[Rfam]
RNA sequence: AGGCGGUGUCGGUGAUCUACCUCCUCCCAGAGAGCCGACGCUAGCACGGCAAUCCUCCUCCCUGCCGUGCUUCAGAUAGACCCGCCGGACCUCCUCCCCCGGCGGGUUUUUCUU
Numbered sequence: 001a002g003g004c005g006g007u008g009u010c011g012g013u014g015a016u017c018u019a020c021c022u023c024c025u026c027c028c029a030g031a032g033a034g035c036c037g038a039c040g041c042u043a044g045c046a047c048g049g050c051a052a053u054c055c056u057c058c059u060c061c062c063u064g065c066c067g068u069g070c071u072u073c074a075g076a077u078a079g080a081c082c083c084g085c086c087g088g089a090c091c092u093c094c095u096c097c098c099c100c101g102g103c104g105g106g107u108u109u110u111u112c113u114u
Base pairs, nucleotide, nucleotide: 007040008039009038011036012035013034016031017030045069046068047067048066049065050064078109079108080107081106082105083104084103085102086101087100088099

A member of the RNA family "Alphaproteobacterial ar14" from Aerobium aerolatum, 114 nucleotides long.
Rfam links the family to the GO term biological process involved in symbiotic interaction.
The source organism's lineage runs through Bacteria, Pseudomonadota, Alphaproteobacteria, Aerobium and Aerobium aerolatum.
Smr14C2 was renamed NfeR1 (Nodule Formation Efficiency RNA) highly expressed in salt stress and during the symbiotic interaction on legume roots.
It is annotated as a small RNA.